This 135-nucleotide sequence from Paenibacillus sp. oral taxon 786 belongs to the Rfam family "c-di-AMP riboswitch aptamer (ydaO/yuaA leader)".
This family represents a conserved RNA structure found upstream of the ydaO and yuaA genes in Bacillus subtilis and related genes in other bacteria. The ydaO/yuaA element is thought to act as a genetic 'off' switch for the ydaO and yuaA genes in its native state. It is believed that the element may be triggered during osmotic shock leading to activation of ydaO, a predicted amino acid transporter gene, and members of the yuaA-yubG operon which code for KtrA and KtrB K+ transporters.
NCBI's taxonomy places the organism under Bacteria, Bacillati, Bacilli, Paenibacillaceae, Paenibacillus sp. oral taxon 786.
A reference for the family is Barrick et al. (2004), "New RNA motifs suggest an expanded scope for riboswitches in bacterial genetic control", Proc Natl Acad Sci U S A.
It scores 80 bits against the family's covariance model.

RNA sequence: AAUUAAUUUUUGCCGAAUUUCUUAACAGAAAACGGGGGAACCACUUUUGGGUGAAUUAUUCUUUUCGUAAAAAAGAAUAUAGGGAACCUUCUACCGAACCCUCAGCUAACUCCGUAGGCAUCGAAGGGAGACUAC
Numbered sequence: 001a002a003u004u005a006a007u008u009u010u011u012g013c014c015g016a017a018u019u020u021c022u023u024a025a026c027a028g029a030a031a032a033c034g035g036g037g038g039a040a041c042c043a044c045u046u047u048u049g050g051g052u053g054a055a056u057u058a059u060u061c062u063u064u065u066c067g068u069a070a071a072a073a074a075g076a077a078u079a080u081a082g083g084g085a086a087c088c089u090u091c092u093a094c095c096g097a098a099c100c101c102u103c104a105g106c107u108a109a110c111u112c113c114g115u116a117g118g119c120a121u122c123g124a125a126g127g128g129a130g131a132c133u134a135c
Base pairs, nucleotide, nucleotide: 011120012119013118014117018031019030020029032115033114034113035112036111037110043047049101050100051099057079058078059077060076061075062074063073064072065071082095083094085092